[Rfam]
RNA sequence: GGGGCUGAUCGGUUUCGACUGGGGACGCUAGUUCCAGGAGAAGCGGGUCGAGGAGCCAGCGACAUCUCGUUAACGACCGCUGGAAACCAUAAGUGCCGACAACGAUCGCACUGACUUCGCUCUCGCUGCCUGAGCAGUGAUCGAAGGGUCAGACCGGGCAUCUGCCUCCGUCCCGGAUCCUGGCCUCAUCUAGGAGGCUCGCUCGUCAGCUCUGGCCACGGAGGCUGACGGGGACUCACCUGUGGCUGAGCCUGUCGGGGACGUGUCCGUCGCGAGCCCCGGGGCCGAGAAAAGCGCCAUCACGGACUGCACCCGGAGAAGACCUGGUUCGGCGCUCGAGGACGCGGGUUCGAUUCCCGCCAGCUCCACCA
Numbered sequence: 001g002g003g004g005c006u007g008a009u010c011g012g013u014u015u016c017g018a019c020u021g022g023g024g025a026c027g028c029u030a031g032u033u034c035c036a037g038g039a040g041a042a043g044c045g046g047g048u049c050g051a052g053g054a055g056c057c058a059g060c061g062a063c064a065u066c067u068c069g070u071u072a073a074c075g076a077c078c079g080c081u082g083g084a085a086a087c088c089a090u091a092a093g094u095g096c097c098g099a100c101a102a103c104g105a106u107c108g109c110a111c112u113g114a115c116u117u118c119g120c121u122c123u124c125g126c127u128g129c130c131u132g133a134g135c136a137g138u139g140a141u142c143g144a145a146g147g148g149u150c151a152g153a154c155c156g157g158g159c160a161u162c163u164g165c166c167u168c169c170g171u172c173c174c175g176g177a178u179c180c181u182g183g184c185c186u187c188a189u190c191u192a193g194g195a196g197g198c199u200c201g202c203u204c205g206u207c208a209g210c211u212c213u214g215g216c217c218a219c220g221g222a223g224g225c226u227g228a229c230g231g232g233g234a235c236u237c238a239c240c241u242g243u244g245g246c247u248g249a250g251c252c253u254g255u256c257g258g259g260g261a262c263g264u265g266u267c268c269g270u271c272g273c274g275a276g277c278c279c280c281g282g283g284g285c286c287g288a289g290a291a292a293a294g295c296g297c298c299a300u301c302a303c304g305g306a307c308u309g310c311a312c313c314c315g316g317a318g319a320a321g322a323c324c325u326g327g328u329u330c331g332g333c334g335c336u337c338g339a340g341g342a343c344g345c346g347g348g349u350u351c352g353a354u355u356c357c358c359g360c361c362a363g364c365u366c367c368a369c370c371a
Base pairs, nucleotide, nucleotide: 001367002366003365004364005363006362007361019340020339022337023336024335028331031330034327035326036325037324038323044315045314046313047312048311049069050068051067052066053065056083057082058081059080060079061078123140124139125138126137127136128135129134147185148184149183150182151181152180154176155175156174157173160171161170164198165197166196167195168194169193202232203231204230205229206228207227208226209225210224214247215246216245217244218243219242250286252284253283255281257279258278259277265307266306267305268304269303270302344360345359346358347357348356
RNA: transfer-messenger RNA